[Rfam]
RNA sequence: CUGUAAAGGCAUGUUGAGCCGUAGGGCCACGACCUGAUUUUUCAGGGCAUGCCGAAGAA
Numbered sequence: 001c002u003g004u005a006a007a008g009g010c011a012u013g014u015u016g017a018g019c020c021g022u023a024g025g026g027c028c029a030c031g032a033c034c035u036g037a038u039u040u041u042u043c044a045g046g047g048c049a050u051g052c053c054g055a056a057g058a059a
Stems, first nucleotide, its partner, number of pairs: 008053006015029002018027003033046005
A member of the RNA family "S4-Fusobacteriales ribosomal protein leader" from Ilyobacter polytropus, 59 nucleotides long. On this family, see Eckert and Weinberg, BMC Microbiol 2020: "Discovery of 20 novel ribosomal leader candidates in bacteria and archaea". It is annotated as a cis-regulatory leader. Clan: Ribosomal Protein S4 Leader clan.